[Rfam]
Notes
This 97-nucleotide RNA from Sulfobacillus harzensis belongs to the Rfam family "SAM riboswitch aptamer (S box leader)". Gene Ontology term of the family: regulation of gene expression. Taxonomically the source falls in Sulfobacillus (Bacteria, Bacillati, Clostridia, Eubacteriales). The match comes from Rfam's covariance-model search (87 bits).
RNA sequence: CUCUUAUCAAGAGCGGCGGAGGGACAGGCCCGAUGAAGCCCGGCAACCAGGCAAAGCCCAGGUGCCAAACCCGACCGAUUUAUCGGAGGGAUGAGAG
Numbered sequence: 001c002u003c004u005u006a007u008c009a010a011g012a013g014c015g016g017c018g019g020a021g022g023g024a025c026a027g028g029c030c031c032g033a034u035g036a037a038g039c040c041c042g043g044c045a046a047c048c049a050g051g052c053a054a055a056g057c058c059c060a061g062g063u064g065c066c067a068a069a070c071c072c073g074a075c076c077g078a079u080u081u082a083u084c085g086g087a088g089g090g091a092u093g094a095g096a097g
Stems, first nucleotide, its partner, number of pairs: 001097008013041001015040003021031003027072002042066004047062002050058003070089001075086004
Dot-bracket structure: ((((((((....(.(((...(((...[[)))......))))((((.((.(((...)))..))))))...(]]..((((....))))..)))))))))